[Rfam]
RNA sequence: AUUCUCCGAUCUUUGGUGAUUCAGCUUCAAUGAUUGGCUACAGGUUUCUUUCAUAAAGCUAGGUUACCAAAGCUCGGCGUCU
Numbered sequence: 001a002u003u004c005u006c007c008g009a010u011c012u013u014u015g016g017u018g019a020u021u022c023a024g025c026u027u028c029a030a031u032g033a034u035u036g037g038c039u040a041c042a043g044g045u046u047u048c049u050u051u052c053a054u055a056a057a058g059c060u061a062g063g064u065u066a067c068c069a070a071a072g073c074u075c076g077g078c079g080u081c082u
Stems, first nucleotide, its partner, number of pairs: 001082001004079001007076003011072011023060004030054004
Rfam assigns this 82-nucleotide sequence from Caenorhabditis elegans to the family "mir-9/mir-79 microRNA precursor family".
The family's consensus secondary structure was predicted with RNAalifold.
A reference for the family is Lagos-Quintana et al. (2001), "Identification of novel genes coding for small expressed RNAs", Science.
Lineage of the source: Eukaryota > Rhabditida > Rhabditidae > Peloderinae > Caenorhabditis.
Rfam links the family to the GO terms miRNA-mediated post-transcriptional gene silencing and RISC complex.